Rfam assigns this 303-nucleotide RNA from Neopipo cinnamomea to the family "Metazoan signal recognition particle RNA". Its Rfam clan is "SRP clan".
[Rfam]
RNA sequence: GCUGGACAUGGUGGUUUGUGCCUGUGAUCUGAGUGCUGGGAGGGCUGAAGUUAAACCAUGGCUUGAUUCCAGGGAUUUUGGGCUGCAACAAGCUGUGCCGAGCGGGCGUCCGUGUGAAGUUUGGCGUGGAUAUGGUGAUCCUGAGGGAACUGGGGGCCACCAAGUCGCCUAAGGAAGGGGGAACUGGCCCAGGAUGAGGUGGAAGCAGGUCAAAAUUCAGGUGUUGAUCCGUAGUGGGAUGGUGUAGGUGACUAUUCCCUGUAGCACAGCCUGGGAAUGGAAAAGAAACCCAGUUGGUUUCCU
Numbered sequence: 001g002c003u004g005g006a007c008a009u010g011g012u013g014g015u016u017u018g019u020g021c022c023u024g025u026g027a028u029c030u031g032a033g034u035g036c037u038g039g040g041a042g043g044g045c046u047g048a049a050g051u052u053a054a055a056c057c058a059u060g061g062c063u064u065g066a067u068u069c070c071a072g073g074g075a076u077u078u079u080g081g082g083c084u085g086c087a088a089c090a091a092g093c094u095g096u097g098c099c100g101a102g103c104g105g106g107c108g109u110c111c112g113u114g115u116g117a118a119g120u121u122u123g124g125c126g127u128g129g130a131u132a133u134g135g136u137g138a139u140c141c142u143g144a145g146g147g148a149a150c151u152g153g154g155g156g157c158c159a160c161c162a163a164g165u166c167g168c169c170u171a172a173g174g175a176a177g178g179g180g181g182a183a184c185u186g187g188c189c190c191a192g193g194a195u196g197a198g199g200u201g202g203a204a205g206c207a208g209g210u211c212a213a214a215a216u217u218c219a220g221g222u223g224u225u226g227a228u229c230c231g232u233a234g235u236g237g238g239a240u241g242g243u244g245u246a247g248g249u250g251a252c253u254a255u256u257c258c259c260u261g262u263a264g265c266a267c268a269g270c271c272u273g274g275g276a277a278u279g280g281a282a283a284a285g286a287a288a289c290c291c292a293g294u295u296g297g298u299u300u301c302c303u
Stems, first nucleotide, its partner, number of pairs: 001045001002043002004023002007020005028041003047301008059292003063288002065278001067276007078269003082265006092256001094254002098250001102249002106245004110238002113236003117232001119229001121227007129166003133162005139156004144151002168174002177218003185212005
NCBI's taxonomy places the organism under Eukaryota, Craniata, Teleostomi, Sauria, Neopipo. Gene Ontology terms of the family: SRP-dependent cotranslational protein targeting to membrane, signal sequence recognition and signal recognition particle, endoplasmic reticulum targeting. The match comes from Rfam's covariance-model search (92 bits). A reference for the family is Wild et al. (2002), "Towards the structure of the mammalian signal recognition particle", Curr Opin Struct Biol. From the family's description: The signal recognition particle (SRP) is a universally conserved ribonucleoprotein. It is involved in the co-translational targeting of proteins to membranes.